[Rfam]
RNA sequence: UGAGAAACCGAGGCAAUCGCGUUCACCGCACGGUGAAUGAGGAAAGUCCGAGCUCCGCAGGGCAGUGUGCUGGAUAACGUCCAGCGAGGGUGACCUUAGGGACAGUGCCAUAGAAAUUUAAACCGCCGGCUAUGCCGGUAAGGGUGGAAAGGUGCGGUAAGAGCGCACCAGCAGUCGAGUGAUCGGCUGGCUUUGGUAAACCCCACAUGGAGCAAGACCAAAUAGGGAAGGAUUGAGGCGGCCCGCCGGCCUUCCGGGUAGUGUCGCUUGAGCCGGCAGGCAACCGUCGGCCCAGAUAAAUGAUUGUCACCGCCGCAAGGCGGAACAGAACUCGGCUUAUUGGUUUUCUCGUAGC
Numbered sequence: 001u002g003a004g005a006a007a008c009c010g011a012g013g014c015a016a017u018c019g020c021g022u023u024c025a026c027c028g029c030a031c032g033g034u035g036a037a038u039g040a041g042g043a044a045a046g047u048c049c050g051a052g053c054u055c056c057g058c059a060g061g062g063c064a065g066u067g068u069g070c071u072g073g074a075u076a077a078c079g080u081c082c083a084g085c086g087a088g089g090g091u092g093a094c095c096u097u098a099g100g101g102a103c104a105g106u107g108c109c110a111u112a113g114a115a116a117u118u119u120a121a122a123c124c125g126c127c128g129g130c131u132a133u134g135c136c137g138g139u140a141a142g143g144g145u146g147g148a149a150a151g152g153u154g155c156g157g158u159a160a161g162a163g164c165g166c167a168c169c170a171g172c173a174g175u176c177g178a179g180u181g182a183u184c185g186g187c188u189g190g191c192u193u194u195g196g197u198a199a200a201c202c203c204c205a206c207a208u209g210g211a212g213c214a215a216g217a218c219c220a221a222a223u224a225g226g227g228a229a230g231g232a233u234u235g236a237g238g239c240g241g242c243c244c245g246c247c248g249g250c251c252u253u254c255c256g257g258g259u260a261g262u263g264u265c266g267c268u269u270g271a272g273c274c275g276g277c278a279g280g281c282a283a284c285c286g287u288c289g290g291c292c293c294a295g296a297u298a299a300a301u302g303a304u305u306g307u308c309a310c311c312g313c314c315g316c317a318a319g320g321c322g323g324a325a326c327a328g329a330a331c332u333c334g335g336c337u338u339a340u341u342g343g344u345u346u347u348c349u350c351g352u353a354g355c
Base pairs, nucleotide, nucleotide: 001351002350003349004348005347006346007345009343011340012308013307014306015305016304017303018302020039021038022037023036024035025034026033027032044338045337046336048335049334050333051332052331053212054211055210056209060244061243062242063241065208066207067206068205069204070084071083072082073081074080085099086097087096088095089094100203101202105201106200107197108196109195123143124142125139126138127137128136129135130134151169152168153167154166155165156164170192172189173188174187175186176185177184178183216265217264218263219261226255227254228253229252230251231250237247238246239245272291273290274289275288276287277286279284
The family of this 355-nucleotide RNA from Selenomonas sp. F0473 is "Bacterial RNase P class A". From the family's description: Ribonuclease P (RNase P) is a ubiquitous endoribonuclease, found in archaea, bacteria and eukarya as well as chloroplasts and mitochondria. Rfam classes the family as a ribozyme. It scores 301 bits against the family's covariance model.